[Rfam]
RNA: mir-124 microRNA precursor family
Organism: Pleuronectes platessa
RNA sequence: CUCUCCUCGUGUUCACGGCGGACCUUGAUUUAAAUGACCAAACAAUUAAGGCACGCGGUGAAUGCCAAGAGAG
Numbered sequence: 001c002u003c004u005c006c007u008c009g010u011g012u013u014c015a016c017g018g019c020g021g022a023c024c025u026u027g028a029u030u031u032a033a034a035u036g037a038c039c040a041a042a043c044a045a046u047u048a049a050g051g052c053a054c055g056c057g058g059u060g061a062a063u064g065c066c067a068a069g070a071g072a073g
Base pairs, nucleotide, nucleotide: 003071004070005069009065010064011063012062013061014060015059016058018056019055020054023051024050025049026048027047028046029045030044